[Rfam]
Nucleotides: 228
Stems, first nucleotide, its partner, number of pairs: 001228004006223022029200001031198003037192011050178012065165003069161003074155001080147004087142006093132011107117002
Number, partner (000 for none) and nucleotide at each position: 001228c002227a003226g004225c005000u006223a007222u008221a009220a010219a011218a012217u013216a014215a015214g016213u017212u018211a019210u020209u021208c022207u023206g024205u025204a026203g027202c028000a029200a030000c031198u032197u033196u034000g035000a036000g037192u038191u039190a040189c041188g042187a043186u044185a045184a046183u047182u048000a049000u050178u051177a052176u053175g054174u055173u056172a057171a058170u059169u060168u061167a062000c063000g064000a065165g066164a067163u068000u069161a070160u071159a072000g073000u074155a075000a076000c077000u078000c079000c080147u081146u082145g083144c084000u085000a086000a087142g088141u089140g090139g091138u092137u093132u094131a095130c096129u097128g098127u099126a100125a101124c102123g103122u104000u105000a106000u107117g108116g109000u110000a111000a112000a113000u114000a115000u116108c117107c118000u119000c120000a121000u122103a123102u124101g125100u126099u127098a128097u129096a130095g131094u132093a133000a134000c135000u136000c137092a138091a139090c140089u141088a142087u143000c144083g145082u146081a147080a148000a149000u150000g151000u152000g153000u154000a155074u156000u157000g158000a159071u160070a161069u162000u163067a164066u165065c166000a167061u168060a169059a170058a171057u172056u173055a174054g175053u176052a177051u178050a179000u180000a181000a182047a183046a184045u185044u186043a187042u188041c189040g190039u191038a192037a193000a194000u195000a196033g197032a198031g199000a200029u201000g202027g203026c204025u205024a206023u207022a208021g209020a210019a211018u212017a213016a214015c215014u216013u217012a218011u219010u220009u221008u222007g223006u224000u225004g226003c227002u228001g
MIR6217 microRNA precursor family: a 228-nucleotide sequence from Miscanthus lutarioriparius. The organism belongs to Miscanthus, within Eukaryota. The match comes from Rfam's covariance-model search (195 bits). Pairs were carried over by alignment from the consensus structure, which was predicted with RNAalifold.